Rfam assigns this 72-nucleotide RNA from Duganella sp. Leaf126 to the family "Fluoride riboswitch aptamer (crcB RNA motif)". The organism belongs to Duganella, within Bacteria. The match comes from Rfam's covariance-model search (52 bits). For this family Rfam cites "Widespread genetic switches and toxicity resistance proteins for fluoride" (Baker et al., Science, 2012).
RNA sequence: CUGAGCAUGGGAGAUGGCAUUCCUCCUGCAACUAUCCCAACCGCCGCUCCGGCUGAUGAUGCCUGCUGAUUC
Numbered sequence: 001c002u003g004a005g006c007a008u009g010g011g012a013g014a015u016g017g018c019a020u021u022c023c024u025c026c027u028g029c030a031a032c033u034a035u036c037c038c039a040a041c042c043g044c045c046g047c048u049c050c051g052g053c054u055g056a057u058g059a060u061g062c063c064u065g066c067u068g069a070u071u072c
Base pairs, nucleotide, nucleotide: 010026011025012024013023016063017062018061019060020059021058043053044052045051